[Rfam]
RNA sequence: CCAAAGGCUCUUUUAAGAGCCACCCACCUUGCAAUAAUAAGAGUAU
Numbered sequence: 001c002c003a004a005a006g007g008c009u010c011u012u013u014u015a016a017g018a019g020c021c022a023c024c025c026a027c028c029u030u031g032c033a034a035u036a037a038u039a040a041g042a043g044u045a046u
Stems, first nucleotide, its partner, number of pairs: 006021006